[Rfam]
RNA sequence: UAGACUGAUAGCAAAGUACCGGAUGCCCAAGCAGCUCAUGAGUUUACCCUAACCGCUUUAUUACCAGCGUUAGCAGGCGCUAACAUGAUAUAUGGUUUAG
Numbered sequence: 001u002a003g004a005c006u007g008a009u010a011g012c013a014a015a016g017u018a019c020c021g022g023a024u025g026c027c028c029a030a031g032c033a034g035c036u037c038a039u040g041a042g043u044u045u046a047c048c049c050u051a052a053c054c055g056c057u058u059u060a061u062u063a064c065c066a067g068c069g070u071u072a073g074c075a076g077g078c079g080c081u082a083a084c085a086u087g088a089u090a091u092a093u094g095g096u097u098u099a100g
Stems, first nucleotide, its partner, number of pairs: 003012001025032001033062002077098001079096002

Description:
Pyrrolysine insertion sequence mttB: a 100-nucleotide sequence from Desulfosporosinus meridiei. The family's RNA type in Rfam is cis-regulatory element. The base pairs follow the family's consensus structure, which was predicted with CMfinder. A reference for the family is Theil Have et al. (2013), "Effects of using coding potential, sequence conservation and mRNA structure conservation for predicting pyrroly-sine containing genes", BMC Bioinformatics. It is one of the family's seed sequences. Rfam links the family to the GO term pyrrolysine incorporation.